RNA sequence: AAAGAAGUGAGAAGUUUAGAUUCUAGUACGAGAGGACCGAAUUUAACGGACCAAGGGUGUUAGAGUGGCCGUGUCAACGGCCCGGCUCUGUUGCUAUGUCCGGAACGGAUAAACGCUGAAAGCAUCUAAGCGUGAAGCCACUUUCAAGAUUGCUUCUUUAUUGUAGGCGUGGGAGACCACCACGUUGAUAGGCCAAAAGUGCAGAUGCAGCAAUGUAUCGAGCUAACUGGUACUAAUCCGACAAAU
Numbered sequence: 001a002a003a004g005a006a007g008u009g010a011g012a013a014g015u016u017u018a019g020a021u022u023c024u025a026g027u028a029c030g031a032g033a034g035g036a037c038c039g040a041a042u043u044u045a046a047c048g049g050a051c052c053a054a055g056g057g058u059g060u061u062a063g064a065g066u067g068g069c070c071g072u073g074u075c076a077a078c079g080g081c082c083c084g085g086c087u088c089u090g091u092u093g094c095u096a097u098g099u100c101c102g103g104a105a106c107g108g109a110u111a112a113a114c115g116c117u118g119a120a121a122g123c124a125u126c127u128a129a130g131c132g133u134g135a136a137g138c139c140a141c142u143u144u145c146a147a148g149a150u151u152g153c154u155u156c157u158u159u160a161u162u163g164u165a166g167g168c169g170u171g172g173g174a175g176a177c178c179a180c181c182a183c184g185u186u187g188a189u190a191g192g193c194c195a196a197a198a199g200u201g202c203a204g205a206u207g208c209a210g211c212a213a214u215g216u217a218u219c220g221a222g223c224u225a226a227c228u229g230g231u232a233c234u235a236a237u238c239c240g241a242c243a244a245a246u
Stems, first nucleotide, its partner, number of pairs: 001159008011145004017045007047102005056095002062089005067082006107139002113133005166242001167239001168184005189235003192231004198224002205218005
Shown here is a 246-nucleotide part of an RNA from an uncultured Verrucomicrobiota bacterium, a member of the family "Bacterial large subunit ribosomal RNA". Pairs were carried over by alignment from the consensus structure, which is taken from published work.